[Rfam]
RNA: SL2 RNA
RNA sequence: GUUUUUUACCCAAGUAUCAAAGGUACUAGGUGUUUUAUUAUGACCAACUUUCAAAGUUGUGUUAUAAAAUCAUAAAUUUUUGGAUCAGCAUUUUCGGGGAAAACAUCCGGAAAUGC
Numbered sequence: 001g002u003u004u005u006u007u008a009c010c011c012a013a014g015u016a017u018c019a020a021a022g023g024u025a026c027u028a029g030g031u032g033u034u035u036u037a038u039u040a041u042g043a044c045c046a047a048c049u050u051u052c053a054a055a056g057u058u059g060u061g062u063u064a065u066a067a068a069a070u071c072a073u074a075a076a077u078u079u080u081u082g083g084a085u086c087a088g089c090a091u092u093u094u095c096g097g098g099g100a101a102a103a104c105a106u107c108c109g110g111a112a113a114u115g116c
Base pairs, nucleotide, nucleotide: 008038013027014026016024018023041064042063043062044061045059046058047057048056049055090114091113092112093111094110095109096108097107099104